[Rfam]
RNA sequence: GGAGUCGGACAGGGUAUCGCCGCGGUCUUUGAUCGGGGAGGAAAGUCCGGGCUUCACAGGGUAGGACGCUGGGUAACUCCCAGGGGGAGCGAUCCCCGUCACGUGCAACAGAAAGUAGACCGCCUCCGGCAUUGCCGGCGGUAAGGGUGAAACGGUGGGGUAAGAGCCUACCGGCUGUCGUGGUGACACGGCAGGCCAGGUGUACUCCGUCCGAAGCAAAACCAAAUAGGACAGCGCUGUAGAUCGACCCGAUCGAGCUGUCGGGUAGGUUGCUCGAACCGGCUGGUAACAGUCGGUCUAGAUGAAUGAUACUCACCCCGAAAGGGGGACAAAACCCGGCUUAUGACCGGCUCCAACU
Number, nucleotide and partner (000 for none) at each position: 001g354002g353003a352004g351005u350006c349007g348008g347009a000010c345011a344012g314013g313014g312015u311016a310017u309018c308019g000020c038021c037022g000023c035024g034025g033026u032027c031028u000029u000030u000031g027032a026033u025034c024035g023036g000037g021038g020039a000040g000041g000042a000043a342044a341045g340046u000047c339048c338049g337050g336051g335052c216053u215054u214055c213056a000057c000058a000059g250060g249061g248062u247063a000064g212065g211066a210067c209068g208069c083070u082071g081072g080073g079074u000075a000076a000077c000078u000079c073080c072081c071082a070083g069084g097085g096086g095087g094088a093089g000090c000091g000092a000093u088094c087095c086096c085097c084098g207099u000100c000101a000102c000103g205104u204105g201106c200107a000108a000109c000110a000111g000112a000113a000114a000115g000116u000117a000118g000119a000120c146121c145122g142123c141124c140125u000126c138127c137128g136129g135130c134131a000132u000133u000134g130135c129136c128137g127138g126139c000140g124141g123142u122143a000144a000145g121146g120147g000148u000149g000150a000151a000152a000153c000154g172155g171156u170157g169158g168159g167160g000161u000162a000163a000164g000165a000166g000167c159168c158169u157170a156171c155172c154173g000174g196175c194176u193177g192178u191179c190180g189181u188182g187183g000184u000185g000186a000187c182188a181189c180190g179191g178192c177193a176194g175195g000196c174197c000198a000199g000200g106201u105202g000203u000204a104205c103206u000207c098208c068209g067210u066211c065212c064213g055214a054215a053216g052217c000218a000219a000220a271221a270222c269223c268224a000225a000226a000227u000228a000229g000230g262231a261232c260233a259234g258235c257236g000237c000238u000239g000240u000241a000242g254243a253244u252245c251246g000247a062248c061249c060250c059251g245252a244253u243254c242255g000256a000257g235258c234259u233260g232261u231262c230263g000264g000265g000266u000267a000268g223269g222270u221271u220272g000273c000274u000275c000276g000277a000278a297279c296280c295281g294282g293283c292284u291285g290286g000287u000288a000289a000290c285291a284292g283293u282294c281295g280296g279297u278298c000299u000300a000301g000302a000303u000304g000305a000306a000307u000308g018309a017310u016311a015312c014313u013314c012315a000316c000317c000318c000319c000320g000321a000322a000323a000324g000325g000326g000327g000328g000329a000330c000331a000332a000333a000334a000335c051336c050337c049338g048339g047340c045341u044342u043343a000344u011345g010346a000347c008348c007349g006350g005351c004352u003353c002354c001355a000356a000357c000358u000

This 358-nucleotide RNA sequence from Pseudodesulfovibrio sp. JC047 belongs to the Rfam family "Bacterial RNase P class A".
A search with the family's covariance model found it, with a score of 304 bits.